[Rfam]
RNA sequence: CGCGGCGGCCCGCCGAGUUCGUGCAGCCAGGAGGCACGGAGCCGGGGAACCAUCGGCCCUCGACGUGUGGCCAGGGGUGAAUCGACGUGUUCUUCGUCGUAGGGCGUCUUCCCAGCCCGAACCCGUCAGCUAACCCGGUAGGCAUCAGUGGAAGUCCCA
Numbered sequence: 001c002g003c004g005g006c007g008g009c010c011c012g013c014c015g016a017g018u019u020c021g022u023g024c025a026g027c028c029a030g031g032a033g034g035c036a037c038g039g040a041g042c043c044g045g046g047g048a049a050c051c052a053u054c055g056g057c058c059c060u061c062g063a064c065g066u067g068u069g070g071c072c073a074g075g076g077g078u079g080a081a082u083c084g085a086c087g088u089g090u091u092c093u094u095c096g097u098c099g100u101a102g103g104g105c106g107u108c109u110u111c112c113c114a115g116c117c118c119g120a121a122c123c124c125g126u127c128a129g130c131u132a133a134c135c136c137g138g139u140a141g142g143c144a145u146c147a148g149u150g151g152a153a154g155u156c157c158c159a
Base pairs, nucleotide, nucleotide: 001038041139042138043137044136045135046134051074075124076123077122083099084098085097086096102118103117104116105115
RNA: c-di-AMP riboswitch aptamer (ydaO/yuaA leader)
Organism: Streptosporangium saharense